RNA sequence: GGCGCGGCUAGCUCGACGGAGCGAACACCCCGACCGCAAGCGGGGCGGCCGCGUCAACCUUCUCCCUUGCGG
Numbered sequence: 001g002g003c004g005c006g007g008c009u010a011g012c013u014c015g016a017c018g019g020a021g022c023g024a025a026c027a028c029c030c031c032g033a034c035c036g037c038a039a040g041c042g043g044g045g046c047g048g049c050c051g052c053g054u055c056a057a058c059c060u061u062c063u064c065c066c067u068u069g070c071g072g
Stems, first nucleotide, its partner, number of pairs: 001055008011022004028045005035072001039068002
Rfam assigns this 72-nucleotide RNA sequence from Reyranella soli to the family "int-alpA RNA".
Rfam classes the family as a small RNA.
Rfam 15.1 lists 577 matches to the family in 491 species.
A search with the family's covariance model found it, with a score of 44 bits.
The family's consensus secondary structure is taken from published work.
Acidobacteria (1 example), Planctomycetes (1 example), Proteobacteria.